This 137-nucleotide sequence from Azohydromonas caseinilytica belongs to the Rfam family "ZMP/ZTP riboswitch aptamer (pfl RNA motif)".
The family's consensus secondary structure is taken from published work.

RNA sequence: GGCAGCCCGCGCGACUGGCGAUAGGGGUUUCAAUAGCAAGCCCCGAGGUGGAGGACCACCGUGGAGCGCGGGCGGUUUCAGGGCCUGGAUUCCGGUGUCCGCGCAGCCGCUUCAAGCCGUUCGCCUGGGCAGCCCUU
Numbered sequence: 001g002g003c004a005g006c007c008c009g010c011g012c013g014a015c016u017g018g019c020g021a022u023a024g025g026g027g028u029u030u031c032a033a034u035a036g037c038a039a040g041c042c043c044c045g046a047g048g049u050g051g052a053g054g055a056c057c058a059c060c061g062u063g064g065a066g067c068g069c070g071g072g073c074g075g076u077u078u079c080a081g082g083g084c085c086u087g088g089a090u091u092c093c094g095g096u097g098u099c100c101g102c103g104c105a106g107c108c109g110c111u112u113c114a115a116g117c118c119g120u121u122c123g124c125c126u127g128g129g130c131a132g133c134c135c136u137u
Base pairs, nucleotide, nucleotide: 003075005073006072007071008070009069010068011067012066015063017125018124019123020122021121048059049058050057051056116130117129118128
Annotation
NCBI's taxonomy places the organism under Bacteria, Pseudomonadota, Betaproteobacteria, Burkholderiales, Azohydromonas. Gene Ontology terms of the family: regulation of purine nucleotide biosynthetic process and one-carbon metabolic process.